[Rfam]
RNA sequence: UACAUUUUGUCGAAGAGAAGUAGUAAGUUGUAAUCUUUUUUUAGAGAGUGCAUGGUUGCUGAAAAUGCAUAAAGGAUUUAACUGAACUUAGCUCGGAUAAUCAAUCGACCGGAACCAAUCCGAUAUCAUGGCAGUGAGGUGCUGAUAAUUUCAGUAUAAACAUAGGUGGUACCACGUAAUUUACGAUUAUACGUCCUAUAG
Numbered sequence: 001u002a003c004a005u006u007u008u009g010u011c012g013a014a015g016a017g018a019a020g021u022a023g024u025a026a027g028u029u030g031u032a033a034u035c036u037u038u039u040u041u042u043a044g045a046g047a048g049u050g051c052a053u054g055g056u057u058g059c060u061g062a063a064a065a066u067g068c069a070u071a072a073a074g075g076a077u078u079u080a081a082c083u084g085a086a087c088u089u090a091g092c093u094c095g096g097a098u099a100a101u102c103a104a105u106c107g108a109c110c111g112g113a114a115c116c117a118a119u120c121c122g123a124u125a126u127c128a129u130g131g132c133a134g135u136g137a138g139g140u141g142c143u144g145a146u147a148a149u150u151u152c153a154g155u156a157u158a159a160a161c162a163u164a165g166g167u168g169g170u171a172c173c174a175c176g177u178a179a180u181u182u183a184c185g186a187u188u189a190u191a192c193g194u195c196c197u198a199u200a201g
Stems, first nucleotide, its partner, number of pairs: 007099001015094003026083005037073003048070006110122003139157007163198004174194005
The family of this 201-nucleotide sequence from Vagococcus vulneris is "T-box leader". The family's consensus secondary structure is taken from published work. Taxonomically the source falls in Vagococcus (Bacteria, Bacillati, Lactobacillales, Enterococcaceae).